[Rfam]
RNA sequence: AAUCCAUCUAGAGCGACCGAGAGACCUGGCUCGACGACGUCGCAGCAACCUCGCCUGCGGUGGCGCAUCAUGCGCCCUCAUAACGCCGAAGGUGCUAACGCCAGCAACCGAUGGGAG
Numbered sequence: 001a002a003u004c005c006a007u008c009u010a011g012a013g014c015g016a017c018c019g020a021g022a023g024a025c026c027u028g029g030c031u032c033g034a035c036g037a038c039g040u041c042g043c044a045g046c047a048a049c050c051u052c053g054c055c056u057g058c059g060g061u062g063g064c065g066c067a068u069c070a071u072g073c074g075c076c077c078u079c080a081u082a083a084c085g086c087c088g089a090a091g092g093u094g095c096u097a098a099c100g101c102c103a104g105c106a107a108c109c110g111a112u113g114g115g116a117g
Stems, first nucleotide, its partner, number of pairs: 003115006013043005021032003026104004044096004049092002051088001053086002100109001
Overview
This 117-nucleotide sequence from Rothia aeria belongs to the Rfam family "SAM riboswitch aptamer (S box leader)". Its family is annotated with regulation of gene expression in the Gene Ontology. The family's consensus secondary structure is taken from published work. The match comes from Rfam's covariance-model search (54 bits).